The family of this 128-nucleotide RNA sequence from Zizania palustris is "Small nucleolar RNA snoR74". A search with the family's covariance model found it, with a score of 95 bits. By type it is an H/ACA-box small nucleolar RNA. Rfam links the family to the GO terms nucleolus and RNA processing. Rfam 15.1 lists 1,404 matches to the family in 223 species. Pairs were carried over by alignment from the consensus structure, which was predicted with WAR.
RNA sequence: AAAAAAGCAGGAUGCUGUGCUCUCUAUCAGCAGUAUCCCCGUAAAUUUUAGGAACAUAUUUCAUCAUUAUUGGGUGAACCAUUGGACCCUAUCCCAUGUUCAUUGGUUCAGUAAAUGGUGGCACAUUU
Numbered sequence: 001a002a003a004a005a006a007g008c009a010g011g012a013u014g015c016u017g018u019g020c021u022c023u024c025u026a027u028c029a030g031c032a033g034u035a036u037c038c039c040c041g042u043a044a045a046u047u048u049u050a051g052g053a054a055c056a057u058a059u060u061u062c063a064u065c066a067u068u069a070u071u072g073g074g075u076g077a078a079c080c081a082u083u084g085g086a087c088c089c090u091a092u093c094c095c096a097u098g099u100u101c102a103u104u105g106g107u108u109c110a111g112u113a114a115a116u117g118g119u120g121g122c123a124c125a126u127u128u
Stems, first nucleotide, its partner, number of pairs: 005048003011037002014034004061121008075110007